[Rfam]
RNA sequence: UGGUUUUCAGAGUCAGUGUACCCUCUAAAAUCA
Numbered sequence: 001u002g003g004u005u006u007u008c009a010g011a012g013u014c015a016g017u018g019u020a021c022c023c024u025c026u027a028a029a030a031u032c033a
Base pairs, nucleotide, nucleotide: 001033002032003031004030005029006028007027009026010025011024012021013020014018